[Rfam]
RNA sequence: CCGUGCUAGGCGGGGAGGUAGCGGUGCCCUGUCGCUCGCAAUCCGCUCUAGCGAGGCUGAAUCCCCGGUUGAGGGGUGUGGCCAACGGGGUCUGCGCGCCGUGGCGGCGCUGAUGGCCCGGGUCCCGCGCGGCGUCGGCUCGUGAACCAGGUCAGGUCCGGAAGGAAGCAGCCUUAAGCGAUCACCGGCGAGCGCAGCGGGAGUUCCCGGUGCCGGAGCCGCCCUCCGGUGUGGCGCCCGAGGGACGCAUGUCGAGGUCGGGUGCACGG
Numbered sequence: 001c002c003g004u005g006c007u008a009g010g011c012g013g014g015g016a017g018g019u020a021g022c023g024g025u026g027c028c029c030u031g032u033c034g035c036u037c038g039c040a041a042u043c044c045g046c047u048c049u050a051g052c053g054a055g056g057c058u059g060a061a062u063c064c065c066c067g068g069u070u071g072a073g074g075g076g077u078g079u080g081g082c083c084a085a086c087g088g089g090g091u092c093u094g095c096g097c098g099c100c101g102u103g104g105c106g107g108c109g110c111u112g113a114u115g116g117c118c119c120g121g122g123u124c125c126c127g128c129g130c131g132g133c134g135u136c137g138g139c140u141c142g143u144g145a146a147c148c149a150g151g152u153c154a155g156g157u158c159c160g161g162a163a164g165g166a167a168g169c170a171g172c173c174u175u176a177a178g179c180g181a182u183c184a185c186c187g188g189c190g191a192g193c194g195c196a197g198c199g200g201g202a203g204u205u206c207c208c209g210g211u212g213c214c215g216g217a218g219c220c221g222c223c224c225u226c227c228g229g230u231g232u233g234g235c236g237c238c239c240g241a242g243g244g245a246c247g248c249a250u251g252u253c254g255a256g257g258u259c260g261g262g263u264g265c266a267c268g269g
Stems, first nucleotide, its partner, number of pairs: 001269006009058003012030004017025001019023001035055005064262007073253002076250002080246001082244002086240004093236002095233006103223002106220003114215004119209004124201005130192001133190005138183001140181004149174004157166003
Dot-bracket structure: ((((((..(((((((.(.(...).).))))....(((((...........)))))))).....(((((((..((.((..(.((..((((...((((((((..((.(((.....((((.((((.(((((.(..((((((.((((.....((((....(((....)))....))))...)))).)..))))).)....)))))....))))..))))..))).))....)))))).))))))..)).)..)).))..))))))).))))))
Background:
Bacterial large signal recognition particle RNA: a 269-nucleotide RNA sequence from Baekduia soli. It scores 152 bits against the family's covariance model.